[Rfam]
This 108-nucleotide sequence from Paenibacillus sp. JCM 10914 belongs to the Rfam family "Glycine riboswitch aptamer". A reference for the family is Babina et al. (2017), "In Vivo Behavior of the Tandem Glycine Riboswitch in Bacillus subtilis", MBio. The match comes from Rfam's covariance-model search (36 bits). The source organism's lineage runs through Bacteria, Bacillota, Bacilli, Paenibacillaceae and Paenibacillus.
RNA sequence: CUCUGGAGAGCAUUCUACGAUUAGAAUCACCCACGGGGAAACUCACGCACAUACUUAACGUAUAUCUUACAUGAUGUGUGAGGCAACUCUCAGGUACAAAGGACAGAG
Numbered sequence: 001c002u003c004u005g006g007a008g009a010g011c012a013u014u015c016u017a018c019g020a021u022u023a024g025a026a027u028c029a030c031c032c033a034c035g036g037g038g039a040a041a042c043u044c045a046c047g048c049a050c051a052u053a054c055u056u057a058a059c060g061u062a063u064a065u066c067u068u069a070c071a072u073g074a075u076g077u078g079u080g081a082g083g084c085a086a087c088u089c090u091c092a093g094g095u096a097c098a099a100a101g102g103a104c105a106g107a108g
Base pairs, nucleotide, nucleotide: 001108002107003106004105005104012027013026014025015024029095030094031093033090036089037088038087042082043081044080045079046078047077048076049075